[Rfam]
RNA sequence: AAGAACGCAGCCGAGAAUCUUCAGGCUGCCUAACGCAUUGCUUCCGGCCGCUGACCACGGAUGAACUGGCAUCGGCCGUCGAGGCAAUCAGGAGAAGGUCGGGAGUUCCCGGCCUUUUUCGUU
Numbered sequence: 001a002a003g004a005a006c007g008c009a010g011c012c013g014a015g016a017a018u019c020u021u022c023a024g025g026c027u028g029c030c031u032a033a034c035g036c037a038u039u040g041c042u043u044c045c046g047g048c049c050g051c052u053g054a055c056c057a058c059g060g061a062u063g064a065a066c067u068g069g070c071a072u073c074g075g076c077c078g079u080c081g082a083g084g085c086a087a088u089c090a091g092g093a094g095a096a097g098g099u100c101g102g103g104a105g106u107u108c109c110c111g112g113c114c115u116u117u118u119u120c121g122u123u
Stems, first nucleotide, its partner, number of pairs: 008028005037088007046077004052071002055069003091120012
Shown here is a 123-nucleotide sequence from Aminobacter sp. MSH1, a member of the family "Alphaproteobacterial sRNA ar35". The literature on the family includes a 2012 paper in RNA Biol by del Val et al., "A survey of sRNA families in alpha-proteobacteria". The match comes from Rfam's covariance-model search (57 bits). Rfam classes the family as a small RNA. Lineage of the source: Bacteria > Pseudomonadota > Hyphomicrobiales > Phyllobacteriaceae > Aminobacter. The pairing is the family consensus, mapped onto this sequence.